[Rfam]
RNA sequence: AGCAGGGAGCGACCAAAGUAAAAAAGAGUGAGCCGGCGGCGCCUGGAGCGCGGCCGGCGAGU
Numbered sequence: 001a002g003c004a005g006g007g008a009g010c011g012a013c014c015a016a017a018g019u020a021a022a023a024a025a026g027a028g029u030g031a032g033c034c035g036g037c038g039g040c041g042c043c044u045g046g047a048g049c050g051c052g053g054c055c056g057g058c059g060a061g062u
Stems, first nucleotide, its partner, number of pairs: 032058006039051002
This 62-nucleotide sequence from Winslowiella iniecta belongs to the Rfam family "DnaX ribosomal frameshifting element".
For this family Rfam cites "Structural probing and mutagenic analysis of the stem-loop required for Escherichia coli dnaX ribosomal frameshifting: programmed efficiency of 50%" (Larsen et al., J Mol Biol, 1997).
Rfam classes the family as a frameshift element.
About the family: This family represents a ribosomal frameshifting element found in the mRNA of the dnaX gene in E. coli.
NCBI's taxonomy places the organism under Bacteria, Pseudomonadati, Enterobacterales, Erwiniaceae, Winslowiella.
A search with the family's covariance model found it, with a score of 65 bits.